[Rfam]
RNA sequence: CCGCAUCCAUUGAUAGACCUUGAACAGUUUGCUGUUGUUUUUUGGUUUGCUCUGGGACGCAAAAGAAAGAAAUCCCUGCACUUCCUUUUGGUCUUUCUGGCAGCCCAGAGUGAAUUGGGGAAUAUGUCU
Numbered sequence: 001c002c003g004c005a006u007c008c009a010u011u012g013a014u015a016g017a018c019c020u021u022g023a024a025c026a027g028u029u030u031g032c033u034g035u036u037g038u039u040u041u042u043u044g045g046u047u048u049g050c051u052c053u054g055g056g057a058c059g060c061a062a063a064a065g066a067a068a069g070a071a072a073u074c075c076c077u078g079c080a081c082u083u084c085c086u087u088u089u090g091g092u093c094u095u096u097c098u099g100g101c102a103g104c105c106c107a108g109a110g111u112g113a114a115u116u117g118g119g120g121a122a123u124a125u126g127u128c129u
Stems, first nucleotide, its partner, number of pairs: 003060002006057003012050001014049006022040007073121006081112001085108002089103001091101003
The family of this 129-nucleotide RNA sequence from Saimiri boliviensis is "Small nucleolar RNA SNORA31".
Rfam links the family to the GO terms RNA processing and nucleolus.
It is annotated as an H/ACA-box small nucleolar RNA.
From the family's description: ACA31 (SNORA31) belongs to the H/ACA class of snoRNAs which are thought to guide the sites of modification of uridines to pseudouridines. ACA31 is predicted to guide the pseudouridylation of U3713 in 28S rRNA and U218 in 18S rRNA. This family includes the mouse homologue snoMBI-161.
A search with the family's covariance model found it, with a score of 97 bits.